[Rfam]
RNA sequence: CUGCAGCUAAUUAAGCCAACCAUGCUCGUUUCCUCCUGGGGGCCUGGUAUGCAAUGGCUGCAAACGCAACUUCCUUGGCAGUGUAUGCAGCCUGUUGCUUGCAUAGGUUGCUCUAAGGGACCUUGGAGACAUUC
Numbered sequence: 001c002u003g004c005a006g007c008u009a010a011u012u013a014a015g016c017c018a019a020c021c022a023u024g025c026u027c028g029u030u031u032c033c034u035c036c037u038g039g040g041g042g043c044c045u046g047g048u049a050u051g052c053a054a055u056g057g058c059u060g061c062a063a064a065c066g067c068a069a070c071u072u073c074c075u076u077g078g079c080a081g082u083g084u085a086u087g088c089a090g091c092c093u094g095u096u097g098c099u100u101g102c103a104u105a106g107g108u109u110g111c112u113c114u115a116a117g118g119g120a121c122c123u124u125g126g127a128g129a130c131a132u133u134c
Stems, first nucleotide, its partner, number of pairs: 002053004019048004025042003077122002088110006
RNA: Small nucleolar RNA SNORA70
Organism: Otolemur garnettii